Rfam assigns this 120-nucleotide sequence from Neobacillus bataviensis to the family "PyrR binding site". The source organism's lineage runs through Bacteria, Bacilli, Bacillaceae, Neobacillus and Neobacillus bataviensis.
RNA sequence: UAAGCCUUUAAUUCAGCCCCGUGAGGCUGAGAAGGAACGGUUAAAAGAUACGGCUGUUUAUGCCUUUAUCUUGUAGUAUAACUUAUCCUCCUCUCACCGACCGGCGAGAGGUUUUUUAUU
Numbered sequence: 001u002a003a004g005c006c007u008u009u010a011a012u013u014c015a016g017c018c019c020c021g022u023g024a025g026g027c028u029g030a031g032a033a034g035g036a037a038c039g040g041u042u043a044a045a046a047g048a049u050a051c052g053g054c055u056g057u058u059u060a061u062g063c064c065u066u067u068a069u070c071u072u073g074u075a076g077u078a079u080a081a082c083u084u085a086u087c088c089u090c091c092u093c094u095c096a097c098c099g100a101c102c103g104g105c106g107a108g109a110g111g112u113u114u115u116u117u118a119u120u
Stems, first nucleotide, its partner, number of pairs: 005035005013030006043074001045072006052065002055062002090111006097104002
This family represents the PyrR binding site and terminator structure.